[Rfam]
RNA sequence: AGCUUCAAGGAGUCAUCAGGAUGCCAUUGUGACUAGGAUCACAUCUUGGUUUUUGUAAUAAUGCUAGCAGAGUACACACAAGAAGAAAAGUAACUGCACUAGAUGAUAAAGACUGGGGUGGACCUCUUUCUUAAUGUCCAGUGUCCUUUGUCUUAAAAUUUGGUGUAACAUGU
Numbered sequence: 001a002g003c004u005u006c007a008a009g010g011a012g013u014c015a016u017c018a019g020g021a022u023g024c025c026a027u028u029g030u031g032a033c034u035a036g037g038a039u040c041a042c043a044u045c046u047u048g049g050u051u052u053u054u055g056u057a058a059u060a061a062u063g064c065u066a067g068c069a070g071a072g073u074a075c076a077c078a079c080a081a082g083a084a085g086a087a088a089a090g091u092a093a094c095u096g097c098a099c100u101a102g103a104u105g106a107u108a109a110a111g112a113c114u115g116g117g118g119u120g121g122a123c124c125u126c127u128u129u130c131u132u133a134a135u136g137u138c139c140a141g142u143g144u145c146c147u148u149u150g151u152c153u154u155a156a157a158a159u160u161u162g163g164u165g166u167a168a169c170a171u172g173u
Stems, first nucleotide, its partner, number of pairs: 016072001020068001022066002026062004032050008095167009115144001117142001119140004
A member of the RNA family "Small nucleolar RNA SNORA81" from Myotis brandtii, 173 nucleotides long.
Rfam 15.1 lists 1,161 matches to the family in 643 species.
It scores 142 bits against the family's covariance model.
The family's consensus secondary structure was predicted with WAR.
By type it is an H/ACA-box small nucleolar RNA.